The family of this 99-nucleotide sequence from Halomonas alimentaria is "TPP riboswitch aptamer (THI element)".
RNA sequence: GCUCGACGACAGGGGCGCCGCGGCACUCGCCGUGGCUGAGACGCACCCUUGGAACCUGACCCGGAUCAUGCCGGCGUAGGGAGUCGUGCAGCCCGCCCC
Numbered sequence: 001g002c003u004c005g006a007c008g009a010c011a012g013g014g015g016c017g018c019c020g021c022g023g024c025a026c027u028c029g030c031c032g033u034g035g036c037u038g039a040g041a042c043g044c045a046c047c048c049u050u051g052g053a054a055c056c057u058g059a060c061c062c063g064g065a066u067c068a069u070g071c072c073g074g075c076g077u078a079g080g081g082a083g084u085c086g087u088g089c090a091g092c093c094c095g096c097c098c099c
Stems, first nucleotide, its partner, number of pairs: 006087005011049004016043001017036007055080004061074004